[Rfam]
RNA sequence: AGGAGCAAGAGGCCCAGUGGUGGGGCCAGCUCUGGAGCCCUGGAGUCAGCCCCCGCAGGAAUUCCAGAGCUCUCGGUCUGCAGGGCCUGGAGGCUUGGGGCGGG
Numbered sequence: 001a002g003g004a005g006c007a008a009g010a011g012g013c014c015c016a017g018u019g020g021u022g023g024g025g026c027c028a029g030c031u032c033u034g035g036a037g038c039c040c041u042g043g044a045g046u047c048a049g050c051c052c053c054c055g056c057a058g059g060a061a062u063u064c065c066a067g068a069g070c071u072c073u074c075g076g077u078c079u080g081c082a083g084g085g086c087c088u089g090g091a092g093g094c095u096u097g098g099g100g101c102g103g104g
Stems, first nucleotide, its partner, number of pairs: 003096004010088002013084002019078003023074003028071009039059004